[Rfam]
RNA sequence: CCCUCUUGUGCCUUCUGAGCUGACAGCAGUUGGACCAAACACCCUGGCUCAGUUCAGCAGGAACAGGAA
Numbered sequence: 001c002c003c004u005c006u007u008g009u010g011c012c013u014u015c016u017g018a019g020c021u022g023a024c025a026g027c028a029g030u031u032g033g034a035c036c037a038a039a040c041a042c043c044c045u046g047g048c049u050c051a052g053u054u055c056a057g058c059a060g061g062a063a064c065a066g067g068a069a
Stems, first nucleotide, its partner, number of pairs: 004068003008064002011061003015057009027046003